[Rfam]
Nucleotides: 099
Base pairs, nucleotide, nucleotide: 018085020083021082022081023080024079025078029048030047031046032045033044034043035042057075058074059073060072061071062070
Number, partner (000 for none) and nucleotide at each position: 001000u002000c003000g004000a005000a006000u007000a008000u009000g010000c011000u012000g013000a014000u015000c016000u017000c018085u019000a020083u021082u022081c023080g024079u025078a026000u027000a028000u029048c030047c031046u032045u033044g034043g035042c036000g037000a038000u039000u040000g041000g042035g043034c044033c045032g046031g047030g048029g049000g050000u051000u052000u053000c054000u055000a056000c057075c058074g059073g060072g061071a062070g063000c064000c065000g066000u067000a068000a069000a070062u071061u072060c073059c074058c075057g076000a077000c078025u079024a080023c081022g082021a083020a084000g085018g086000a087000g088000g089000c090000g091000g092000a093000a094000c095000c096000a097000g098000g099000c